[Rfam]
RNA sequence: AAGAUACAAUUAAAUAGAACUCAUAUAAUUUUGGGGUUAUGGCCCAUAAGUUUCUACCGGACGACCAUUAAUUUGUCCGACUAUGAGUGAGUGCGAAUGUAUU
Numbered sequence: 001a002a003g004a005u006a007c008a009a010u011u012a013a014a015u016a017g018a019a020c021u022c023a024u025a026u027a028a029u030u031u032u033g034g035g036g037u038u039a040u041g042g043c044c045c046a047u048a049a050g051u052u053u054c055u056a057c058c059g060g061a062c063g064a065c066c067a068u069u070a071a072u073u074u075g076u077c078c079g080a081c082u083a084u085g086a087g088u089g090a091g092u093g094c095g096a097a098u099g100u101a102u103u
Base pairs, nucleotide, nucleotide: 019088020087021086022085023084024083025082029049030048032046033045034044035043058079059078060077061076062075063074064073